The family of this 31-nucleotide sequence from Oryzias latipes is "Iron response element II".
Pairs were carried over by alignment from the consensus structure, which is taken from published work.
About the family: IRE, TFRC, SLC40A1, SDHB, SLC11A2, CDC42BPA, ACO2, ALAS2_H.SAPIENS, CDC14A, EPAS1, ALAS2, qoxD, Hao1, NDUFS1, transferrin, Aconitate.
NCBI's taxonomy places the organism under Eukaryota, Eumetazoa, Teleostei, Ctenosquamata, Oryzias.
The match comes from Rfam's covariance-model search (31 bits).
Rfam classes the family as a cis-regulatory element.
For this family Rfam cites "Deficiency of glutaredoxin 5 reveals Fe-S clusters are required for vertebrate haem synthesis" (Wingert et al., Nature, 2005).
RNA sequence: UACUUAUCAGCAGCAGCGCCUGCUAUAAGCU
Numbered sequence: 001u002a003c004u005u006a007u008c009a010g011c012a013g014c015a016g017c018g019c020c021u022g023c024u025a026u027a028a029g030c031u
Stems, first nucleotide, its partner, number of pairs: 003029005009024005014018001